Overview: A member of the RNA family "bablM sRNA" from Pelagibacterales bacterium SAG-MED04, 69 nucleotides long. The organism belongs to Candidatus Pelagibacterales, within Bacteria. The family's RNA type in Rfam is small RNA.
[Rfam]
RNA sequence: GAGUCUAAAUAUUUCAAUCUCAGGUUGACCGUAGAAUCCAUUUGGAGUCUAAUUAUUUUUUAAAAAUGA
Numbered sequence: 001g002a003g004u005c006u007a008a009a010u011a012u013u014u015c016a017a018u019c020u021c022a023g024g025u026u027g028a029c030c031g032u033a034g035a036a037u038c039c040a041u042u043u044g045g046a047g048u049c050u051a052a053u054u055a056u057u058u059u060u061u062a063a064a065a066a067u068g069a
Stems, first nucleotide, its partner, number of pairs: 014028005033050003037046003
Notes:
The literature on the family includes a 2009 paper in BMC Genomics by Meyer et al., "Identification of candidate structured RNAs in the marine organism 'Candidatus Pelagibacter ubique'".